The family of this 75-nucleotide RNA from Phytophthora citrophthora is "Mitochondrion-encoded tmRNA". The family's RNA type in Rfam is non-coding RNA gene. Its Rfam clan is "tRNA clan". The sequence is in the family's curated seed alignment. Its family is annotated with RNA catabolic process in the Gene Ontology. Lineage of the source: Eukaryota > Oomycota > Peronosporomycetes > Peronosporales > Phytophthora.
RNA sequence: AAAAUGGACCCAAAGGCAGUAUUUGGUAUUUCCAUAUUGUAAAUUAAUAGGGAAUAAUAAUAGAAUUGACAUUUA
Numbered sequence: 001a002a003a004a005u006g007g008a009c010c011c012a013a014a015g016g017c018a019g020u021a022u023u024u025g026g027u028a029u030u031u032c033c034a035u036a037u038u039g040u041a042a043a044u045u046a047a048u049a050g051g052g053a054a055u056a057a058u059a060a061u062a063g064a065a066u067u068g069a070c071a072u073u074u075a
Stems, first nucleotide, its partner, number of pairs: 002074005010026005027056007